[Rfam]
RNA: GA-cis RNA
RNA sequence: UAGAGUCGGUUCCCAAAUGAUGCGCAGCAUCAUUUUUGCAUGGGACCGACGAUCUGCCGCCGAGGCAUCAGCCGAGGGGGCGGGCACUAUA
Numbered sequence: 001u002a003g004a005g006u007c008g009g010u011u012c013c014c015a016a017a018u019g020a021u022g023c024g025c026a027g028c029a030u031c032a033u034u035u036u037u038g039c040a041u042g043g044g045a046c047c048g049a050c051g052a053u054c055u056g057c058c059g060c061c062g063a064g065g066c067a068u069c070a071g072c073c074g075a076g077g078g079g080g081c082g083g084g085c086a087c088u089a090u091a
Stems, first nucleotide, its partner, number of pairs: 008047006017033006056081003060077002064073002